[Rfam]
RNA sequence: AAAGACCCUUUUGAGCUUGACUCUAAUCUGGCAGUGUAAGGAGACAUAAGAGGUGUAGAAUAAGUGGGAGAUAUUAGCCCUCGGUUUGGUAUCGUCAAUGAAAUACCACUACUCUUAUUGUUUCCUUACUUACUUGAUUAAAUGGAACGUGUAUCAUUUCCUAGCCAAUAUACGGAUAUAUUUAUUAUAUCUUGUGGUAUUGGGUUUUGAUGCAAGCUUCUUGAUUAAAGUAUCACGAGUUUGUUAUAUAAUCGCAAACAAAUUUUUUAAUAAAACGAUGCAUUUAUGUAUUUUUGAUUGGAAAAUUUGGUAUAACUCCAUUUACUCAGGUAUGGUCCAAUUCCAGGUAGGGAGUUUGACUGGGGCGGUACAUCUCUCAAAUAAUAACGGAGGUGUCCCAAGGCCAGCUCAGUGCGGACAGAAACCACACAUAGAGCAAAAGGGCAAAUGCUGACUUGAUCUCGGUGUUCAGUAUACACAGGGACAGCAAAAGCUUGGCCUAUCGAUCCUUUUGGUUUAAUGAGUUUUUAACAAGAGGUGUCAGAAAAGCUAUCAUAGGGAUAAC
Numbered sequence: 001a002a003a004g005a006c007c008c009u010u011u012u013g014a015g016c017u018u019g020a021c022u023c024u025a026a027u028c029u030g031g032c033a034g035u036g037u038a039a040g041g042a043g044a045c046a047u048a049a050g051a052g053g054u055g056u057a058g059a060a061u062a063a064g065u066g067g068g069a070g071a072u073a074u075u076a077g078c079c080c081u082c083g084g085u086u087u088g089g090u091a092u093c094g095u096c097a098a099u100g101a102a103a104u105a106c107c108a109c110u111a112c113u114c115u116u117a118u119u120g121u122u123u124c125c126u127u128a129c130u131u132a133c134u135u136g137a138u139u140a141a142a143u144g145g146a147a148c149g150u151g152u153a154u155c156a157u158u159u160c161c162u163a164g165c166c167a168a169u170a171u172a173c174g175g176a177u178a179u180a181u182u183u184a185u186u187a188u189a190u191c192u193u194g195u196g197g198u199a200u201u202g203g204g205u206u207u208u209g210a211u212g213c214a215a216g217c218u219u220c221u222u223g224a225u226u227a228a229a230g231u232a233u234c235a236c237g238a239g240u241u242u243g244u245u246a247u248a249u250a251a252u253c254g255c256a257a258a259c260a261a262a263u264u265u266u267u268u269a270a271u272a273a274a275a276c277g278a279u280g281c282a283u284u285u286a287u288g289u290a291u292u293u294u295u296g297a298u299u300g301g302a303a304a305a306u307u308u309g310g311u312a313u314a315a316c317u318c319c320a321u322u323u324a325c326u327c328a329g330g331u332a333u334g335g336u337c338c339a340a341u342u343c344c345a346g347g348u349a350g351g352g353a354g355u356u357u358g359a360c361u362g363g364g365g366c367g368g369u370a371c372a373u374c375u376c377u378c379a380a381a382u383a384a385u386a387a388c389g390g391a392g393g394u395g396u397c398c399c400a401a402g403g404c405c406a407g408c409u410c411a412g413u414g415c416g417g418a419c420a421g422a423a424a425c426c427a428c429a430c431a432u433a434g435a436g437c438a439a440a441a442g443g444g445c446a447a448a449u450g451c452u453g454a455c456u457u458g459a460u461c462u463c464g465g466u467g468u469u470c471a472g473u474a475u476a477c478a479c480a481g482g483g484a485c486a487g488c489a490a491a492a493g494c495u496u497g498g499c500c501u502a503u504c505g506a507u508c509c510u511u512u513u514g515g516u517u518u519a520a521u522g523a524g525u526u527u528u529u530a531a532c533a534a535g536a537g538g539u540g541u542c543a544g545a546a547a548a549g550c551u552a553u554c555a556u557a558g559g560g561a562u563a564a565c
Stems, first nucleotide, its partner, number of pairs: 007559003012555002014551005020355004027347005033341001036129010046118007063110005070093008133335002137331001143328003151213005230322001358371001359369003372394006397498002403455001405453004409435002412430003416426002436445002460484004465479004486495003509537006517531004
About this RNA
Shown here is a 565-nucleotide part of an RNA from Drosophila yakuba, a member of the family "Eukaryotic large subunit ribosomal RNA". Its family is annotated with ribosome and structural constituent of ribosome in the Gene Ontology. The sequence is in the family's curated seed alignment.